[Rfam]
RNA sequence: AUCGUUCAUCUCUUUAUACCAGAGACGGAAGUAGGGAAAGUUCCCGAAGGAACGCGCC
Dot-bracket structure: ..(((((.(((((.......)))))..[.....(((......)))....)))))]...
RNA: Glutamine riboswitch aptamer (glnA leader)
Organism: Gloeothece verrucosa